RNA: Guanidine-I riboswitch aptamer
RNA sequence: GAAAAAGCUGUCUAGGGUUCCGUUGACUUUCCGGAUCGCAUUCGGGUAAGGUCAAGCUGGUCCAAGAGACGGCGUACAGAGCUAUUCAAGCGAUUGAGCAGCUUCUGUAUAACACGGAAGGAUAAAAGCCUGGGAGAU
Numbered sequence: 001g002a003a004a005a006a007g008c009u010g011u012c013u014a015g016g017g018u019u020c021c022g023u024u025g026a027c028u029u030u031c032c033g034g035a036u037c038g039c040a041u042u043c044g045g046g047u048a049a050g051g052u053c054a055a056g057c058u059g060g061u062c063c064a065a066g067a068g069a070c071g072g073c074g075u076a077c078a079g080a081g082c083u084a085u086u087c088a089a090g091c092g093a094u095u096g097a098g099c100a101g102c103u104u105c106u107g108u109a110u111a112a113c114a115c116g117g118a119a120g121g122a123u124a125a126a127a128g129c130c131u132g133g134g135a136g137a138u
Base pairs, nucleotide, nucleotide: 007073008072009071010070011069012068015063016062020060021059022057023055024054025053026052027051028050029049030048074110075109076108077107078106079105080104081103113133115136119131120130121129